[Rfam]
RNA sequence: AUCACAAUACAGAUCUGUGUCGAGCGAUCCCGACACCUGGCAACAGGUUGUUCGGUUGAUUGCUCGACAGUUCGACAACCUAUGGAGCCGCCAACAUUCUUAUGGUGUCAAUCUUCCAGUCGACAGAUCUCAGACUAACAGGAUUCUCUGGCCUGAGCUCCCUUCGGGUGAGCUCGGCCAGCGGAUUGCUGGGGCGUCAUAUUCCUAAAGCUUCGCUCGAGACCGUCGGUCUGUGAAGCGGAGACAAACCAUUUCUGCCUACAUGC
Numbered sequence: 001a002u003c004a005c006a007a008u009a010c011a012g013a014u015c016u017g018u019g020u021c022g023a024g025c026g027a028u029c030c031c032g033a034c035a036c037c038u039g040g041c042a043a044c045a046g047g048u049u050g051u052u053c054g055g056u057u058g059a060u061u062g063c064u065c066g067a068c069a070g071u072u073c074g075a076c077a078a079c080c081u082a083u084g085g086a087g088c089c090g091c092c093a094a095c096a097u098u099c100u101u102a103u104g105g106u107g108u109c110a111a112u113c114u115u116c117c118a119g120u121c122g123a124c125a126g127a128u129c130u131c132a133g134a135c136u137a138a139c140a141g142g143a144u145u146c147u148c149u150g151g152c153c154u155g156a157g158c159u160c161c162c163u164u165c166g167g168g169u170g171a172g173c174u175c176g177g178c179c180a181g182c183g184g185a186u187u188g189c190u191g192g193g194g195c196g197u198c199a200u201a202u203u204c205c206u207a208a209a210g211c212u213u214c215g216c217u218c219g220a221g222a223c224c225g226u227c228g229g230u231c232u233g234u235g236a237a238g239c240g241g242a243g244a245c246a247a248a249c250c251a252u253u254u255c256u257g258c259c260u261a262c263a264u265g266c
Stems, first nucleotide, its partner, number of pairs: 011130008019068006026061004030055004034050002036047004076122001078120002083110003087106003141189001143187001150179004155175006161168002193259003196255001199252002211243007221231004
RNA: A. fumigatus sRNA Afu_309